The family of this 219-nucleotide sequence from Peptacetobacter hiranonis is "raiA RNA".
The sequence is in the family's curated seed alignment.
Taxonomically the source falls in Peptacetobacter hiranonis (Bacteria, Bacillati, Bacillota, Clostridia).
It is annotated as a riboswitch.
[Rfam]
RNA sequence: GAUGUUCAGGUCUGUGGUUGAAAGUCCAAGCCAGUCGCAGGCAAAGGGAUCCACGUAAGCUAGUCCUAAAAGCGGGGCAGUGAUCAUAGUGCGGCCUAGAAGUAAGACCUACCGAUAUUCAAAAAUAAAUUCCAAUCGAGAGAGAGUAGUAGUGAUGCGAACCAGAGCGAACCCUCCAGUAGGCGAGUGUGGGGGAAAAGACCAGGUCAGCUGAAUAUC
Numbered sequence: 001g002a003u004g005u006u007c008a009g010g011u012c013u014g015u016g017g018u019u020g021a022a023a024g025u026c027c028a029a030g031c032c033a034g035u036c037g038c039a040g041g042c043a044a045a046g047g048g049a050u051c052c053a054c055g056u057a058a059g060c061u062a063g064u065c066c067u068a069a070a071a072g073c074g075g076g077g078c079a080g081u082g083a084u085c086a087u088a089g090u091g092c093g094g095c096c097u098a099g100a101a102g103u104a105a106g107a108c109c110u111a112c113c114g115a116u117a118u119u120c121a122a123a124a125a126u127a128a129a130u131u132c133c134a135a136u137c138g139a140g141a142g143a144g145a146g147u148a149g150u151a152g153u154g155a156u157g158c159g160a161a162c163c164a165g166a167g168c169g170a171a172c173c174c175u176c177c178a179g180u181a182g183g184c185g186a187g188u189g190u191g192g193g194g195g196a197a198a199a200g201a202c203c204a205g206g207u208c209a210g211c212u213g214a215a216u217a218u219c
Stems, first nucleotide, its partner, number of pairs: 001219009012210003015204005028190001030188001031041001034095006050089001055084001058081001064076003087197001108183005113138003142176003146173001152168002156164002
Dot-bracket structure: (((((((((..((((((((........(.([..((((((.]........(....(..(.....(((.......)))....)..)..[.)))))))............((((((((....................)))...(((.(.....((..((.....))..))....))))..)))))....).)......]..)))))...))))))))))))